[Rfam]
RNA sequence: UAUGUUUGAGGAGCACUAGGCUGUUUGUCUAGACUAACUAAGCUCUGGAAAGCAGUGCUGAAUUUCUGAGAAGAGAGAGCAUGGGGUGUGCUGAUUUAAAAACAGAAAAUGCAAAGUUGGACUGAAAAUAUCCUCAAUCUUCCAAGCAAUCUGCUUAAGGGUUCCAAACUUACCUUAAUUUGGUGAGAAAAGAAGCUGCCCUAUUUUUCUUUCUUCUACAACUGGAACCAGCCAUUUCCCAAAACCAUCACCAUG
Numbered sequence: 001u002a003u004g005u006u007u008g009a010g011g012a013g014c015a016c017u018a019g020g021c022u023g024u025u026u027g028u029c030u031a032g033a034c035u036a037a038c039u040a041a042g043c044u045c046u047g048g049a050a051a052g053c054a055g056u057g058c059u060g061a062a063u064u065u066c067u068g069a070g071a072a073g074a075g076a077g078a079g080c081a082u083g084g085g086g087u088g089u090g091c092u093g094a095u096u097u098a099a100a101a102a103c104a105g106a107a108a109a110u111g112c113a114a115a116g117u118u119g120g121a122c123u124g125a126a127a128a129u130a131u132c133c134u135c136a137a138u139c140u141u142c143c144a145a146g147c148a149a150u151c152u153g154c155u156u157a158a159g160g161g162u163u164c165c166a167a168a169c170u171u172a173c174c175u176u177a178a179u180u181u182g183g184u185g186a187g188a189a190a191a192g193a194a195g196c197u198g199c200c201c202u203a204u205u206u207u208u209c210u211u212u213c214u215u216c217u218a219c220a221a222c223u224g225g226a227a228c229c230a231g232c233c234a235u236u237u238c239c240c241a242a243a244a245c246c247a248u249c250a251c252c253a254u255g
Stems, first nucleotide, its partner, number of pairs: 047239005069217011081204008090196003095191003103153004110148003117145005124139002169187006

Voltage-gated potassium-channel Kv1.4 IRES: a 255-nucleotide RNA from Nannospalax galili. This family represents the Kv1.4 voltage-gated potassium-channel internal ribosome entry site (IRES). Rfam links the family to the GO term ribosome binding. The literature on the family includes a 2004 paper in J Biol Chem by Jang et al., "Structurally distinct elements mediate internal ribosome entry within the 5'-noncoding region of a voltage-gated potassium channel mRNA".